[Rfam]
RNA sequence: CAUUUUCAGCGACGUAUAUUGACAAAUAUACUACAGUCGGACGUUUGUGCCGACAUAUAUACUACACUUUACCAAAAAUAUACUACACUAAACUCUAAAUAUACUACAACUCCGCUUCAAUAUAACUAUACUCUCGUAAAACGGCCUAAAAAUAUCGAAAUAUAUGGGGUAAAUACACGUUUGAAAAACGCUACGAUUCC
Numbered sequence: 001c002a003u004u005u006u007c008a009g010c011g012a013c014g015u016a017u018a019u020u021g022a023c024a025a026a027u028a029u030a031c032u033a034c035a036g037u038c039g040g041a042c043g044u045u046u047g048u049g050c051c052g053a054c055a056u057a058u059a060u061a062c063u064a065c066a067c068u069u070u071a072c073c074a075a076a077a078a079u080a081u082a083c084u085a086c087a088c089u090a091a092a093c094u095c096u097a098a099a100u101a102u103a104c105u106a107c108a109a110c111u112c113c114g115c116u117u118c119a120a121u122a123u124a125a126c127u128a129u130a131c132u133c134u135c136g137u138a139a140a141a142c143g144g145c146c147u148a149a150a151a152a153u154a155u156c157g158a159a160a161u162a163u164a165u166g167g168g169g170u171a172a173a174u175a176c177a178c179g180u181u182u183g184a185a186a187a188a189c190g191c192u193a194c195g196a197u198u199c200c
Base pairs, nucleotide, nucleotide: 008192009191010190011189014031015030016029017028018027019026020025036054037053038052039051040050041048042047135179136178137177144170145169146168147167152163153162154161155160
About this RNA: A member of the RNA family "Baculoviridae Nucleocapsid Assembly essential Element" from Alphabaculovirus raous, 200 nucleotides long. About the family: Internal cis-element within the ac83 gene. Rfam links the family to the GO term viral capsid assembly. Taxonomically the source falls in Alphabaculovirus raous (Viruses, Naldaviricetes, Lefavirales, Baculoviridae). Rfam's curators put it in the seed alignment.